[Rfam]
RNA sequence: UGGUCAUUACCAAGGCUGCUGGGAUGUUCCUGUUUCUGGUGAGCUGUGGACAUGACCAUAAAGCAAAUCCACCAGACUUCCAUGUUGCCACAUGAUGUGGCACCAAGUCUGCUGGGAAUAAAG
Numbered sequence: 001u002g003g004u005c006a007u008u009a010c011c012a013a014g015g016c017u018g019c020u021g022g023g024a025u026g027u028u029c030c031u032g033u034u035u036c037u038g039g040u041g042a043g044c045u046g047u048g049g050a051c052a053u054g055a056c057c058a059u060a061a062a063g064c065a066a067a068u069c070c071a072c073c074a075g076a077c078u079u080c081c082a083u084g085u086u087g088c089c090a091c092a093u094g095a096u097g098u099g100g101c102a103c104c105a106a107g108u109c110u111g112c113u114g115g116g117a118a119u120a121a122a123g
Stems, first nucleotide, its partner, number of pairs: 003056005010049003026044004068116004075109004086102003